A member of the RNA family "UnaL2 LINE 3' element" from Megalops atlanticus, 54 nucleotides long. The eel long interspersed element (LINE) UnaL2 and its partner short interspersed element (SINE) share a conserved 3' tail containing a stem-loop that is critical for their retrotransposition. Presumably, the first step of retrotransposition is the recognition of their 3' tails by UnaL2-encoded reverse transcriptase. The solution structure of a 17-nucleotide RNA derived from the 3' tail of UnaL2 was determined by NMR. The family's RNA type in Rfam is cis-regulatory element.
RNA sequence: AAAAAAAACUGAUGUAAGUUGCUCUGGAUAAGAGCGCCUGCUAAAUGCCAAUAA
Numbered sequence: 001a002a003a004a005a006a007a008a009c010u011g012a013u014g015u016a017a018g019u020u021g022c023u024c025u026g027g028a029u030a031a032g033a034g035c036g037c038c039u040g041c042u043a044a045a046u047g048c049c050a051a052u053a054a
Stems, first nucleotide, its partner, number of pairs: 013043001014041003020036006